Plastid-rpl20 3UTR RNA: a 73-nucleotide RNA sequence from Triticum urartu.
A reference for the family is Richter et al. (2023), "Retrograde signaling in plants: A critical review focusing on the GUN pathway and beyond", Plant Commun.
From the family's description: Plastid rpl20 is a non-coding RNA (ncRNA) recognised in plastids. It was found in the three prime untranslated region (3UTR) of rpl20 gene, it presence in the 3UTR region sugest a role in transcript maduration.
Pairs were carried over by alignment from the consensus structure, which was predicted with LocARNA.
It scores 79 bits against the family's covariance model.
RNA sequence: GAUGAAUUCCCGGAGAGGGAACUCCGGGAAGAUACAAUAAAUUAAGAUUAAGUGGUAGGAAUCCAAUGCCAAU
Numbered sequence: 001g002a003u004g005a006a007u008u009c010c011c012g013g014a015g016a017g018g019g020a021a022c023u024c025c026g027g028g029a030a031g032a033u034a035c036a037a038u039a040a041a042u043u044a045a046g047a048u049u050a051a052g053u054g055g056u057a058g059g060a061a062u063c064c065a066a067u068g069c070c071a072a073u
Base pairs, nucleotide, nucleotide: 007030008029009028010027011026012025013024014023015022066073